[Rfam]
RNA sequence: GCCCCCAUCGUCUAUCGGCUAGGACAUCAGGUUCUCAUCCUGGAAAGCGGGGUUCGAUUCCCCGUGGGGGUG
Numbered sequence: 001g002c003c004c005c006c007a008u009c010g011u012c013u014a015u016c017g018g019c020u021a022g023g024a025c026a027u028c029a030g031g032u033u034c035u036c037a038u039c040c041u042g043g044a045a046a047g048c049g050g051g052g053u054u055c056g057a058u059u060c061c062c063c064g065u066g067g068g069g070g071u072g
Base pairs, nucleotide, nucleotide: 001071002070003069004068005067006066007065010025011024012023013022027043028042029041030040031039048064049063050062051061052060
RNA: tRNA
Organism: bacterium E08(2017)